[Rfam]
RNA sequence: UACAGAGUAGAGUGCUGCGCGUAAAGUGCCUGACGGACGGGGAGUUGCCGUCGGGACGAAAAGGACGUUCGCCCUUGCGGUGCAGUAUUCGCAUCCCGCUGAA
Numbered sequence: 001u002a003c004a005g006a007g008u009a010g011a012g013u014g015c016u017g018c019g020c021g022u023a024a025a026g027u028g029c030c031u032g033a034c035g036g037a038c039g040g041g042g043a044g045u046u047g048c049c050g051u052c053g054g055g056a057c058g059a060a061a062a063g064g065a066c067g068u069u070c071g072c073c074c075u076u077g078c079g080g081u082g083c084a085g086u087a088u089u090c091g092c093a094u095c096c097c098g099c100u101g102a103a
Base pairs, nucleotide, nucleotide: 001103003101004100005099010090011089012088013087014086015085016084017083018082019081020079021078022077026057027056029055030054031053032052033051034050035049036048040096041095042094044092061076062075063074064073
The record is a 103-nucleotide RNA from Ruminococcus sp. YE71, which matches "THF (Tetrahydrofolate) riboswitch aptamer" in Rfam. Tetrahydrofolate (THF) riboswitch was first reported for Ames et al. as an RNA motif in 5' untranslated (5'-UTR)regions of folate transport and biosynthesis genes in Firmicutes genomes. On this family, see Huang et al., Proc Natl Acad Sci U S A 2011: "Long-range pseudoknot interactions dictate the regulatory response in the tetrahydrofolate riboswitch". Its family is annotated with tetrahydrofolate metabolic process in the Gene Ontology. It scores 89 bits against the family's covariance model. Taxonomically the source falls in Ruminococcus (Bacteria, Clostridia, Eubacteriales, Oscillospiraceae).